The record is a 68-nucleotide sequence from Cyprinus carpio, which matches "mir-23 microRNA precursor family" in Rfam.
NCBI's taxonomy places the organism under Eukaryota, Bilateria, Gnathostomata, Cyprinoidei, Cyprinus.
The literature on the family includes a 2005 paper in Genes Dev by Chen et al., "The developmental miRNA profiles of zebrafish as determined by small RNA cloning".
It is one of the family's seed sequences.
Gene Ontology terms of the family: RISC complex and gene silencing by miRNA.
The family has 83 seed sequences and 1,403 matches in Rfam 15.1.
RNA sequence: UGUGUGGGUUCCUGGCAUGCUGAUUUGUGACUGUAGUGAAAAAUCACAUUGCCAGGGAUUACCACACU
Numbered sequence: 001u002g003u004g005u006g007g008g009u010u011c012c013u014g015g016c017a018u019g020c021u022g023a024u025u026u027g028u029g030a031c032u033g034u035a036g037u038g039a040a041a042a043a044u045c046a047c048a049u050u051g052c053c054a055g056g057g058a059u060u061a062c063c064a065c066a067c068u
Stems, first nucleotide, its partner, number of pairs: 002067002005064003008059010018048002021046006